RNA sequence: UGCUCAUCCAGAGUGGUGGAGGGAACGGCCCUGCGAAGCCCGGCAACCAGCGCGUACCGCGCCAGGUGCCAAUGCCGGCGGACAGUGUCCGCACGAUGAGCG
Numbered sequence: 001u002g003c004u005c006a007u008c009c010a011g012a013g014u015g016g017u018g019g020a021g022g023g024a025a026c027g028g029c030c031c032u033g034c035g036a037a038g039c040c041c042g043g044c045a046a047c048c049a050g051c052g053c054g055u056a057c058c059g060c061g062c063c064a065g066g067u068g069c070c071a072a073u074g075c076c077g078g079c080g081g082a083c084a085g086u087g088u089c090c091g092c093a094c095g096a097u098g099a100g101c102g
Stems, first nucleotide, its partner, number of pairs: 001102008013041001015040003021031003026077003042070004047066002050062003074094001079091005
RNA: SAM riboswitch aptamer (S box leader)
Organism: Sphaerobacter thermophilus